[Rfam]
RNA sequence: GGUGAUUCUUGGGUGACACACCCCAGAAUCAAGCUCCCUCCUCUCUGGUUCUGCAUCACCUGAGAACCGCA
Numbered sequence: 001g002g003u004g005a006u007u008c009u010u011g012g013g014u015g016a017c018a019c020a021c022c023c024c025a026g027a028a029u030c031a032a033g034c035u036c037c038c039u040c041c042u043c044u045c046u047g048g049u050u051c052u053g054c055a056u057c058a059c060c061u062g063a064g065a066a067c068c069g070c071a
Base pairs, nucleotide, nucleotide: 002070003069006066007065008064009063010062011061012060013059014058015057016056019053025052026051027050028049029048030047031046033044
RNA: mir-9223 microRNA precursor family